The record is a 99-nucleotide RNA from Paenibacillus sp. NFR01, which matches "Purine riboswitch aptamer" in Rfam. It scores 64 bits against the family's covariance model. Riboswitches are metabolite binding domains within certain messenger RNAs that serve as precision sensors for their corresponding targets. Allosteric rearrangement of mRNA structure is mediated by ligand binding, and this results in modulation of gene expression. A class of riboswitches that selectively recognises guanine and becomes saturated at concentrations as low as 5 nM. In Bacillus subtilis, this mRNA motif is located on at least five separate transcriptional units that together encode 17 genes that are mostly involved in purine transport and purine nucleotide biosynthesis. It has also been shown that some members of this family are specific for adenine instead.
[Rfam]
RNA sequence: UAAUUGAAUAGUCCUGUUUUUCGUAUAUCCUUAAUAAUCGGGUUAAGGGUCUCUACUGGGAACCGUAAAUUUCCGGCUACGAAGAUAGGCUUUGACGAA
Numbered sequence: 001u002a003a004u005u006g007a008a009u010a011g012u013c014c015u016g017u018u019u020u021u022c023g024u025a026u027a028u029c030c031u032u033a034a035u036a037a038u039c040g041g042g043u044u045a046a047g048g049g050u051c052u053c054u055a056c057u058g059g060g061a062a063c064c065g066u067a068a069a070u071u072u073c074c075g076g077c078u079a080c081g082a083a084g085a086u087a088g089g090c091u092u093u094g095a096c097g098a099a
Stems, first nucleotide, its partner, number of pairs: 018085008029048007057075006